[Rfam]
RNA sequence: GUGUUUUUCAUGGUAUUAGAUUUAAGGUUAGCAAUGAAGAUUGGUUGUCCGUGACGGAUAACCUUUUCUUUUUUA
Numbered sequence: 001g002u003g004u005u006u007u008u009c010a011u012g013g014u015a016u017u018a019g020a021u022u023u024a025a026g027g028u029u030a031g032c033a034a035u036g037a038a039g040a041u042u043g044g045u046u047g048u049c050c051g052u053g054a055c056g057g058a059u060a061a062c063c064u065u066u067u068c069u070u071u072u073u074u075a
Base pairs, nucleotide, nucleotide: 043063044062045061046060047059048058049057
RNA: Bacteroidetes FopS (family of paralogous sRNAs)
Organism: Parabacteroides chinchillae